A member of the RNA family "c-di-AMP riboswitch aptamer (ydaO/yuaA leader)" from Corynebacterium occultum, 167 nucleotides long. The match comes from Rfam's covariance-model search (64 bits).
RNA sequence: UGAAACUGAACAUCGACAUUACAGACAGGGGCGGGGAACCCACCGCGGAACCAUCCGCACCGGAGGACAACCUCCUUGGGGUGAAGCCGCAGCACGCGGCCGGGCAGUCUGAAUCCUCACAGCCCGAACCCGACAGCUCACCUCGCAGGCGGACAAUGAGAGGAAUC
Dot-bracket structure: (....((....................)).((((((....((..................................))(((.....((((.....))))..((((................))))...))).........)))))).)...................
Numbered sequence: 001u002g003a004a005a006c007u008g009a010a011c012a013u014c015g016a017c018a019u020u021a022c023a024g025a026c027a028g029g030g031g032c033g034g035g036g037a038a039c040c041c042a043c044c045g046c047g048g049a050a051c052c053a054u055c056c057g058c059a060c061c062g063g064a065g066g067a068c069a070a071c072c073u074c075c076u077u078g079g080g081g082u083g084a085a086g087c088c089g090c091a092g093c094a095c096g097c098g099g100c101c102g103g104g105c106a107g108u109c110u111g112a113a114u115c116c117u118c119a120c121a122g123c124c125c126g127a128a129c130c131c132g133a134c135a136g137c138u139c140a141c142c143u144c145g146c147a148g149g150c151g152g153a154c155a156a157u158g159a160g161a162g163g164a165a166u167c
Stems, first nucleotide, its partner, number of pairs: 001148001006029002031146006041078002079131003087099004102125004